A member of the RNA family "mir-148/mir-152 microRNA precursor family" from Scleropages formosus, 74 nucleotides long. The literature on the family includes a 2002 paper in Curr Biol by Lagos-Quintana et al., "Identification of tissue-specific microRNAs from mouse".
RNA sequence: CAGUGCUGAAGUUCUGUGAUACACUUGGGCUCUGAGUCUGAGGCAGUCAGUGCAUAACAGAACUUUGGUACGGG
Numbered sequence: 001c002a003g004u005g006c007u008g009a010a011g012u013u014c015u016g017u018g019a020u021a022c023a024c025u026u027g028g029g030c031u032c033u034g035a036g037u038c039u040g041a042g043g044c045a046g047u048c049a050g051u052g053c054a055u056a057a058c059a060g061a062a063c064u065u066u067g068g069u070a071c072g073g074g
Stems, first nucleotide, its partner, number of pairs: 004070013022052004028048004